[Rfam]
RNA sequence: CACCGAGUCCGAGGCUCUGGGGAUCUCCAGGGCCUGGUGCAAAAGGGA
Numbered sequence: 001c002a003c004c005g006a007g008u009c010c011g012a013g014g015c016u017c018u019g020g021g022g023a024u025c026u027c028c029a030g031g032g033c034c035u036g037g038u039g040c041a042a043a044a045g046g047g048a
Stems, first nucleotide, its partner, number of pairs: 013034008

The record is a 48-nucleotide sequence from Streptomyces filamentosus, which matches "raiA-hairpin RNA" in Rfam.
It is one of the family's seed sequences.
By type it is a small RNA.